[Rfam]
RNA: Small nucleolar RNA SNORD14
Organism: Ipomoea nil
RNA sequence: GGUCUUUGAUGAUAUAUUUAAGGCUUGUUUCUCAAAACGUUCGCAGUGGCCGCCUAAGGCUUUCGCCUUUCGCCGGGCUUGAGAGCCGAUGCUGCUUUCCUUGGAUGUCUGAGACA
Numbered sequence: 001g002g003u004c005u006u007u008g009a010u011g012a013u014a015u016a017u018u019u020a021a022g023g024c025u026u027g028u029u030u031c032u033c034a035a036a037a038c039g040u041u042c043g044c045a046g047u048g049g050c051c052g053c054c055u056a057a058g059g060c061u062u063u064c065g066c067c068u069u070u071c072g073c074c075g076g077g078c079u080u081g082a083g084a085g086c087c088g089a090u091g092c093u094g095c096u097u098u099c100c101u102u103g104g105a106u107g108u109c110u111g112a113g114a115c116a
Stems, first nucleotide, its partner, number of pairs: 002115003059086006